[Rfam]
RNA: chrB-a RNA
Organism: Sphingomonas aerophila
RNA sequence: GCCAUGGGGACCGCGAUUGCCCCACGAGGCGUCAGCCGAAGAAUCGCGUCCAGCACCAUUACGCAAGGGACGCGCCAUG
Numbered sequence: 001g002c003c004a005u006g007g008g009g010a011c012c013g014c015g016a017u018u019g020c021c022c023c024a025c026g027a028g029g030c031g032u033c034a035g036c037c038g039a040a041g042a043a044u045c046g047c048g049u050c051c052a053g054c055a056c057c058a059u060u061a062c063g064c065a066a067g068g069g070a071c072g073c074g075c076c077a078u079g
Base pairs, nucleotide, nucleotide: 005024006023007022008021009020046073047072048071049070050069051068